A member of the RNA family "Mammalian CPEB3 ribozyme" from Crocodylus porosus, 77 nucleotides long. The match comes from Rfam's covariance-model search (40 bits).

[Rfam]
RNA sequence: AGUUACAAGUUUAGGGCCAUAGUAAAAGUACUCACAGUGUGGCCCUCUCAGAUUUGAACAAAACUGAAAAUACUGCU
Numbered sequence: 001a002g003u004u005a006c007a008a009g010u011u012u013a014g015g016g017c018c019a020u021a022g023u024a025a026a027a028g029u030a031c032u033c034a035c036a037g038u039g040u041g042g043c044c045c046u047c048u049c050a051g052a053u054u055u056g057a058a059c060a061a062a063a064c065u066g067a068a069a070a071u072a073c074u075g076c077u
Base pairs, nucleotide, nucleotide: 013046014045015044016043017042018041021077022076023075024074027071028040029039030038049066050065051064053062054061055060